Shown here is a 45-nucleotide RNA sequence from Tetzosporium hominis, a member of the family "PreQ1 (pre queuosine) riboswitch aptamer".

[Rfam]
RNA sequence: GAAUUCGUGGUUCGAGAACCUCCCACGUAAAAAAACUAAGGAGAU
Number, nucleotide and partner (000 for none) at each position: 001g000002a000003a000004u000005u000006c027007g026008u025009g024010g023011u000012u000013c000014g000015a000016g037017a000018a000019c000020c000021u000022c000023c010024c009025a008026c007027g006028u000029a000030a000031a000032a000033a000034a000035a000036c000037u016038a000039a000040g000041g000042a000043g000044a000045u000

Lineage of the source: Bacteria > Bacilli > Caryophanales > Caryophanaceae > Tetzosporium. Rfam's curators write: This family is a bacterial riboswitch that binds to the metabolite preQ1, an intermediate in the biosynthesis of the modified nucleoside queuosine from GTP. One example of this riboswitch is located in the leader of the Bacillus subtilis ykvJKLM (queCDEF) operon which encodes four genes necessary for queuosine production. PreQ1 binding to the riboswitch aptamer is thought to induce premature transcription termination within the leader to down-regulate expression of these genes.